[Rfam]
RNA sequence: CGACCCGGUGGACCGCGACAUCAAGUACUUAAAGAACCAAGAGAAAUUACCCAACCCCACCCCACCCGAUCCCAGUGGUCAGCUGCGGGAGGGGCUGGUCACUCACACGGGUGAGAUUCGCCAACUGGGCUGGAUUUCGGACGGGUUGGCAGGCAUAUGCUCACGCUGACCACAACCCCAGACAUGAGACGGCCCCCGCCGGGACGGCAAUCCCGAGCGAGGACCUGACCACCAAGGAAGCAGCACAUCUUCCCG
Dot-bracket structure: ......((((...((((..................................................................))))...........((((((....))))))..............(.(((...........................))))..........................((.((.(((.((((......))))..))).)).))....))))..(((((........)))))..
This 255-nucleotide RNA sequence from Streptomyces sp. WZ.A104 belongs to the Rfam family "Streptomyces sRNA 4677". Rfam describes the family as follows. Located in the intergenic region between anti-sigma factor SCO4677 gene and a putative regulatory protein gene SCO4676. scr4677 expression requires the SCO4677 activity and scr4677 sRNA itself seem to affect the levels of the SCO4676-associated transcripts. Lineage of the source: Bacteria > Bacillati > Actinomycetota > Actinomycetes > Streptomyces. The pairing is the family consensus, mapped onto this sequence.